[Rfam]
RNA sequence: CCGGCCGCAGAGCCUAACGGGAGACAGAGCAGCGAGCGAAGGCGUCGGCCAUUUUGUGGAUGUUUCCUGUGGGACGCGGUGGUG
Dot-bracket structure: .(.(((((.(...((.((((((((((..((((.(..(((.....)))..)...))))...)))))))))).)).)))))).)..
Numbered sequence: 001c002c003g004g005c006c007g008c009a010g011a012g013c014c015u016a017a018c019g020g021g022a023g024a025c026a027g028a029g030c031a032g033c034g035a036g037c038g039a040a041g042g043c044g045u046c047g048g049c050c051a052u053u054u055u056g057u058g059g060a061u062g063u064u065u066c067c068u069g070u071g072g073g074a075c076g077c078g079g080u081g082g083u084g
Stems, first nucleotide, its partner, number of pairs: 002082001004080005010075001014073002017070010029057004034050001037047003